[Rfam]
RNA sequence: ACGGAAGAACGGGCGGCCAAGAUCGGGCCAGAAGAGAAGGGCCGAUCUCCCAACCGGGAUUCCCAGCAAGGGCACCAGGCACCCACGCGGAGCGCGCCGCGACAAGGGCAGAAGCGUUGUGGGCCUGCGUGAUUCGGGUCUUCGCGGGCGAGGACCUCGCACAGGUUGCGGGGAUGAACCAGCGAAGGUCGGAUUGACGCCGAGGCCAACCACACAACCCACCUAGCACGCUUGGUAACCGGGUAGUCCUUGUUAGCGGGCGGUGAAGUCGAGCAAUCGGCAGCACCGCCCGUUUUUUAUG
Numbered sequence: 001a002c003g004g005a006a007g008a009a010c011g012g013g014c015g016g017c018c019a020a021g022a023u024c025g026g027g028c029c030a031g032a033a034g035a036g037a038a039g040g041g042c043c044g045a046u047c048u049c050c051c052a053a054c055c056g057g058g059a060u061u062c063c064c065a066g067c068a069a070g071g072g073c074a075c076c077a078g079g080c081a082c083c084c085a086c087g088c089g090g091a092g093c094g095c096g097c098c099g100c101g102a103c104a105a106g107g108g109c110a111g112a113a114g115c116g117u118u119g120u121g122g123g124c125c126u127g128c129g130u131g132a133u134u135c136g137g138g139u140c141u142u143c144g145c146g147g148g149c150g151a152g153g154a155c156c157u158c159g160c161a162c163a164g165g166u167u168g169c170g171g172g173g174a175u176g177a178a179c180c181a182g183c184g185a186a187g188g189u190c191g192g193a194u195u196g197a198c199g200c201c202g203a204g205g206c207c208a209a210c211c212a213c214a215c216a217a218c219c220c221a222c223c224u225a226g227c228a229c230g231c232u233u234g235g236u237a238a239c240c241g242g243g244u245a246g247u248c249c250u251u252g253u254u255a256g257c258g259g260g261c262g263g264u265g266a267a268g269u270c271g272a273g274c275a276a277u278c279g280g281c282a283g284c285a286c287c288g289c290c291c292g293u294u295u296u297u298u299a300u301g
Base pairs, nucleotide, nucleotide: 003063004062006060010056011055012054015051016050020048021047024044025043026042028040029039065254066253067252068251069250070249071248072247075242076241078240079239083235084234085233087231088230089229092227093226096109097108098107116218117217118216119215120214121213122207123206124205125204126203127200128199129198130197132194133193134192135191136190137189142185143184144183146180147179149176150175155173156172157171158170159169160168161167256293257292258291259290260289261288262287263286264285265284268281269280270279
Mycobacterium smegmatis small RNA 1: a 301-nucleotide sequence from Antrihabitans stalactiti. The family's consensus secondary structure was predicted with CMfinder. Its family is annotated with RNA polymerase binding in the Gene Ontology. Rfam describes the family as follows. Mycobacterium smegmatis small RNA 1 is highly expressed during stationary phase of growth. Ms1 RNA directly interacts with RNA polymerase (RNAP), but in a different way than 6S, which is present in other bacteria. Ms1 does not require the presence of the main sigma factor for RNAP interaction. There is evidence that Ms1 RNA may function similar to 6S RNA in M. smegmatis which does not have 6S RNA. NCBI's taxonomy places the organism under Bacteria, Actinomycetota, Actinomycetes, Nocardiaceae, Antrihabitans.